[Rfam]
Nucleotides: 101
Base pairs, nucleotide, nucleotide: 006089007088008087009086011050012049013048014047016044017037018036019035020034021033022032023031056081057080058079062075063074064073065072
Number, partner (000 for none) and nucleotide at each position: 001000c002000u003000g004000c005000g006089u007088c008087a009086c010000c011050u012049g013048g014047g015000g016044u017037g018036c019035c020034c021033c022032g023031c024000g025000g026000c027000a028000g029000a030000a031023g032022u033021g034020g035019g036018g037017c038000u039000g040000a041000g042000a043000c044016a045000c046000a047014c048013c049012c050011a051000a052000g053000g054000a055000a056081c057080c058079u059000g060000a061000a062075c063074c064073g065072g066000g067000u068000c069000a070000u071000a072065c073064c074063g075062g076000c077000g078000g079058a080057g081056g082000g083000a084000g085000u086009g087008u088007g089006a090000c091000c092000g093000g094000c095000c096000c097000g098000g099000c100000c101000a